tRNA: an 84-nucleotide RNA from a Dysgonamonadaceae bacterium. Its family is annotated with triplet codon-amino acid adaptor activity in the Gene Ontology. By type it is a transfer RNA.
RNA sequence: GCCCGGAUGGCGGAAUUGGUAGACGCGCUAGUUUCAGGGACUAGUGUCGGUUACGACGUGCAGGUUCGAGUCCUGUUCCGGGCA
Numbered sequence: 001g002c003c004c005g006g007a008u009g010g011c012g013g014a015a016u017u018g019g020u021a022g023a024c025g026c027g028c029u030a031g032u033u034u035c036a037g038g039g040a041c042u043a044g045u046g047u048c049g050g051u052u053a054c055g056a057c058g059u060g061c062a063g064g065u066u067c068g069a070g071u072c073c074u075g076u077u078c079c080g081g082g083c084a
Stems, first nucleotide, its partner, number of pairs: 001083007010026003028044005060076005